[Rfam]
RNA: T-box leader
Organism: Atopococcus tabaci
RNA sequence: AAAAGAACGAUGAAUGCGAAUAAGUAUAUGGAUGUUUUUUAUAGAGAGCCAAUGAGUGGUGGAAAUUGGUAAAAAUAACCAUAGAAUCCAUCGCAGAAGUAAACAACAAGCCUCUUGGCGACUUGUUUCGGUAUCAGCCGUUAUAUAAUAAGUGUAAAGAUUGUAACAAUCUUUAAAAUCGGGUGGAACCGCGGAGUCUUUCGUCCCUAUG
Numbered sequence: 001a002a003a004a005g006a007a008c009g010a011u012g013a014a015u016g017c018g019a020a021u022a023a024g025u026a027u028a029u030g031g032a033u034g035u036u037u038u039u040u041a042u043a044g045a046g047a048g049c050c051a052a053u054g055a056g057u058g059g060u061g062g063a064a065a066u067u068g069g070u071a072a073a074a075a076u077a078a079c080c081a082u083a084g085a086a087u088c089c090a091u092c093g094c095a096g097a098a099g100u101a102a103a104c105a106a107c108a109a110g111c112c113u114c115u116u117g118g119c120g121a122c123u124u125g126u127u128u129c130g131g132u133a134u135c136a137g138c139c140g141u142u143a144u145a146u147a148a149u150a151a152g153u154g155u156a157a158a159g160a161u162u163g164u165a166a167c168a169a170u171c172u173u174u175a176a177a178a179u180c181g182g183g184u185g186g187a188a189c190c191g192c193g194g195a196g197u198c199u200u201u202c203g204u205c206c207c208u209a210u211g
Stems, first nucleotide, its partner, number of pairs: 007100002015095004027083005037073003048070006103126004129140003155175007181207003191204005